Rfam assigns this 96-nucleotide RNA sequence from Thiomonas bhubaneswarensis to the family "Glycine riboswitch aptamer". Pairs were carried over by alignment from the consensus structure.

RNA sequence: UGCUUCGCGUCAGGAGAGCGCCGCACGCUUGUGGGGCCGCCGAAGGCGUAAACCCGCAGGGGUGUACCGCUCAGGCAAAAGGACUGACCACACCGC
Numbered sequence: 001u002g003c004u005u006c007g008c009g010u011c012a013g014g015a016g017a018g019c020g021c022c023g024c025a026c027g028c029u030u031g032u033g034g035g036g037c038c039g040c041c042g043a044a045g046g047c048g049u050a051a052a053c054c055c056g057c058a059g060g061g062g063u064g065u066a067c068c069g070c071u072c073a074g075g076c077a078a079a080a081g082g083a084c085u086g087a088c089c090a091c092a093c094c095g096c
Base pairs, nucleotide, nucleotide: 009088010087011086012085013084020037021036022035039076040075041074042072043071046070047069048068052063053062